[Rfam]
RNA sequence: CAUAAACAAAGACCUCCUAACUUUGUUUAGAAAUCCUAAAACUUUUCUUUUUCAUAAUAAUCUCUCUAUAAGAACCGCCCAAUUGGCGGUUUUUUU
Number, nucleotide and partner (000 for none) at each position: 001c000002a000003u029004a028005a027006a026007c025008a024009a023010a022011g021012a000013c000014c000015u000016c000017c000018u000019a000020a000021c011022u010023u009024u008025g007026u006027u005028u004029a003030g000031a000032a000033a000034u000035c000036c000037u000038a000039a000040a000041a000042c000043u000044u000045u000046u000047c000048u000049u000050u000051u000052u000053c000054a000055u000056a000057a000058u000059a000060a000061u000062c000063u000064c000065u000066c000067u000068a000069u000070a000071a093072g092073a091074a090075c089076c088077g087078c086079c085080c000081a000082a000083u000084u000085g079086g078087c077088g076089g075090u074091u073092u072093u071094u000095u000096u000

The family of this 96-nucleotide RNA sequence from Streptococcus sanguinis is "Cia-dependent small RNA csRNA1". For this family Rfam cites "Identification of the genes directly controlled by the response regulator CiaR in Streptococcus pneumoniae: five out of 15 promoters drive expression of small non-coding RNAs" (Halfmann et al., Mol Microbiol, 2007). The base pairs follow the family's consensus structure. Rfam's curators put it in the seed alignment.